RNA sequence: AUGAGGGCGACCGAAUGUGGGGAGGAAGCGUGGAGCGUAAAUCGUGAGCCGAUGAACAAGAACUGCAUAGAAGGCGCUGCCGAGCAGGGCGAACGGGCCCAUAACCGCGAAGCUCUCGUGACCAAGGCGAAGCGGCGUAGAUGCGGCGGUUGUGCGAUGAAGGAGUGCGUUC
Dot-bracket structure: ((..((....))..))...........(.(((...(....(((((((((((...........((((((.....(((.(.(...((.((((...(((........)))....))))...........)))).....)))..))))))))))).))))))....)....))).)
Numbered sequence: 001a002u003g004a005g006g007g008c009g010a011c012c013g014a015a016u017g018u019g020g021g022g023a024g025g026a027a028g029c030g031u032g033g034a035g036c037g038u039a040a041a042u043c044g045u046g047a048g049c050c051g052a053u054g055a056a057c058a059a060g061a062a063c064u065g066c067a068u069a070g071a072a073g074g075c076g077c078u079g080c081c082g083a084g085c086a087g088g089g090c091g092a093a094c095g096g097g098c099c100c101a102u103a104a105c106c107g108c109g110a111a112g113c114u115c116u117c118g119u120g121a122c123c124a125a126g127g128c129g130a131a132g133c134g135g136c137g138u139a140g141a142u143g144c145g146g147c148g149g150u151u152g153u154g155c156g157a158u159g160a161a162g163g164a165g166u167g168c169g170u171u172c
Stems, first nucleotide, its partner, number of pairs: 001016002005012002028172001030170003036163001041158006047151005063146006074138003078130001080129001084128002087115004094107003